[Rfam]
RNA sequence: AUAUUAAGGGAAUAACAGUUUCGUAUAAUCUUGGGGAUAGGCCUGAGAGUUUCUACGAGAUCACCGUAAAUGAUCUGGCUACGAACAAACAACAAGGAAGA
Numbered sequence: 001a002u003a004u005u006a007a008g009g010g011a012a013u014a015a016c017a018g019u020u021u022c023g024u025a026u027a028a029u030c031u032u033g034g035g036g037a038u039a040g041g042c043c044u045g046a047g048a049g050u051u052u053c054u055a056c057g058a059g060a061u062c063a064c065c066g067u068a069a070a071u072g073a074u075c076u077g078g079c080u081a082c083g084a085a086c087a088a089a090c091a092a093c094a095a096g097g098a099a100g101a
Base pairs, nucleotide, nucleotide: 020085021084022083023082024081025080029048030047031046032045033044034043035042058076059075060074061073062072063071
RNA: Purine riboswitch aptamer